[Rfam]
RNA sequence: UAAUUGGCUCGAGCAGUUGCUAUUUUUUUAUUGUCGAACAAUAAUAGUAUUUGAACCCUCGAGAGUAAAUCCUUUUCUC
Numbered sequence: 001u002a003a004u005u006g007g008c009u010c011g012a013g014c015a016g017u018u019g020c021u022a023u024u025u026u027u028u029u030a031u032u033g034u035c036g037a038a039c040a041a042u043a044a045u046a047g048u049a050u051u052u053g054a055a056c057c058c059u060c061g062a063g064a065g066u067a068a069a070u071c072c073u074u075u076u077c078u079c
Stems, first nucleotide, its partner, number of pairs: 009062005015052001018049007027041002063074003
RNA: Aggregatibacter sRNA 69
Organism: Pasteurella multocida